[Rfam]
RNA sequence: AGGCAGCCCUUUGUUUAUUACAAUUUCUAUGGAGGUGUUGUGUUGCUUGGAGAUUAAAUCUUCUGCUCUUCAGAUCAGCUGAGGGGGCGCUUGCUUCCCUCUUCGAAGUUGGCCUAGUAGUCUUAAGAACAAU
Numbered sequence: 001a002g003g004c005a006g007c008c009c010u011u012u013g014u015u016u017a018u019u020a021c022a023a024u025u026u027c028u029a030u031g032g033a034g035g036u037g038u039u040g041u042g043u044u045g046c047u048u049g050g051a052g053a054u055u056a057a058a059u060c061u062u063c064u065g066c067u068c069u070u071c072a073g074a075u076c077a078g079c080u081g082a083g084g085g086g087g088c089g090c091u092u093g094c095u096u097c098c099c100u101c102u103u104c105g106a107a108g109u110u111g112g113c114c115u116a117g118u119a120g121u122c123u124u125a126a127g128a129a130c131a132a133u
Base pairs, nucleotide, nucleotide: 002039003038004037005036007035008034009032010031012029013028060127061126062125065122067120072115073114075112076111078109079108080107083101084100085099086098087097
RNA: Small nucleolar RNA snoR77